[Rfam]
RNA: Group II catalytic intron D1-D4-2
Organism: Martinezella rhizogenes
RNA sequence: GAGGGUAGGUCCCUCGAAGCCGACCGUCAGGGGUAGGUUUCAAACCACUGCAAGCUGCGACGGUAAAGAGCCGUGGUGGUGAGCGUUGCAGAAAAGGCGGAUGUUAGUCCGUCAGGU
Numbered sequence: 001g002a003g004g005g006u007a008g009g010u011c012c013c014u015c016g017a018a019g020c021c022g023a024c025c026g027u028c029a030g031g032g033g034u035a036g037g038u039u040u041c042a043a044a045c046c047a048c049u050g051c052a053a054g055c056u057g058c059g060a061c062g063g064u065a066a067a068g069a070g071c072c073g074u075g076g077u078g079g080u081g082a083g084c085g086u087u088g089c090a091g092a093a094a095a096g097g098c099g100g101a102u103g104u105u106a107g108u109c110c111g112u113c114a115g116g117u
Stems, first nucleotide, its partner, number of pairs: 001015005016041006023034003046116001048091006054080002057077002061073004096113006